The record is a 76-nucleotide RNA from Methylobrevis pamukkalensis, which matches "Makes More Granules Regulator RNA (mmgR)" in Rfam. The family's RNA type in Rfam is small RNA. Lineage of the source: Bacteria > Pseudomonadati > Alphaproteobacteria > Hyphomicrobiales > Methylobrevis. The family has 87 seed sequences and 1,791 matches in Rfam 15.1. From the family's description: SuhB later renamed mmgR (makes more granules regulator) was a putative non-coding RNA found multiple times in the Agrobacterium tumefaciens genome and related alpha-proteobacteria. Rfam links the family to the GO terms response to nitrogen compound, DNA-templated transcription, termination and protein binding.
RNA sequence: GCUGCAUGCCCUCCUUGGGCGUUUCCUCCCUAGACUUUCAGACCGCUGCUCGCAGCGGUCUUUUUUUUUGCCGCGC
Numbered sequence: 001g002c003u004g005c006a007u008g009c010c011c012u013c014c015u016u017g018g019g020c021g022u023u024u025c026c027u028c029c030c031u032a033g034a035c036u037u038u039c040a041g042a043c044c045g046c047u048g049c050u051c052g053c054a055g056c057g058g059u060c061u062u063u064u065u066u067u068u069u070g071c072c073g074c075g076c
Stems, first nucleotide, its partner, number of pairs: 008020004040061009